Rfam assigns this 160-nucleotide RNA sequence from Rhodopseudomonas rhenobacensis to the family "speF leader". Rfam describes the family as follows. This family is a putative regulatory RNA structure that is found upstream of the speF gene encoding ornithine decarboxylase in Agrobacterium tumefaciens and other alpha-proteobacteria. Taxonomically the source falls in Rhodopseudomonas (Bacteria, Pseudomonadati, Alphaproteobacteria, Nitrobacteraceae). Pairs were carried over by alignment from the consensus structure, which was predicted with RNAalifold. A search with the family's covariance model found it, with a score of 84 bits.
Nucleotides: 160
Stems, first nucleotide, its partner, number of pairs: 001023008037054003061140003086100001108123005
Number, partner (000 for none) and nucleotide at each position: 001023u002022g003021c004020c005019g006018g007017c008016u009000u010000u011000c012000c013000a014000c015000c016008a017007g018006c019005c020004g021003g022002c023001g024000c025000g026000a027000u028000u029000a030000c031000c032000g033000a034000a035000g036000a037054g038053g039052c040000u041000u042000g043000u044000c045000c046000u047000u048000c049000a050000u051000u052039g053038c054037c055000a056000g057000g058000u059000g060000a061140g062139c063138g064000g065000g066000c067000g068000g069000g070000a071000g072000c073000a074000u075000c076000u077000c078000c079000c080000a081000a082000c083000c084000a085000a086100u087000c088000c089000a090000a091000c092000g093000g094000c095000a096000g097000c098000a099000c100086a101000g102000u103000u104000u105000g106000u107000c108123u109122g110121a111120g112119c113000u114000c115000u116000u117000a118000g119112g120111c121110u122109c123108g124000u125000c126000g127000c128000g129000c130000c131000u132000c133000c134000a135000u136000c137000g138063c139062g140061c141000g142000u143000c144000g145000g146000g147000u148000u149000u150000g151000c152000a153000g154000c155000g156000c157000u158000c159000g160000g